[Rfam]
RNA sequence: GUCUCGAUGGUGUAGUUGGUUAUCACGUGGGUCUCAUACUACAGUAUGACGUGGAAGGUUCAACUUCCAUGCGAUCCCAAGGCCGGGAGUUCGAACCUCCCUCGGGACA
Numbered sequence: 001g002u003c004u005c006g007a008u009g010g011u012g013u014a015g016u017u018g019g020u021u022a023u024c025a026c027g028u029g030g031g032u033c034u035c036a037u038a039c040u041a042c043a044g045u046a047u048g049a050c051g052u053g054g055a056a057g058g059u060u061c062a063a064c065u066u067c068c069a070u071g072c073g074a075u076c077c078c079a080a081g082g083c084c085g086g087g088a089g090u091u092c093g094a095a096c097c098u099c100c101c102u103c104g105g106g107a108c109a
Stems, first nucleotide, its partner, number of pairs: 001108007010026003028079004085101005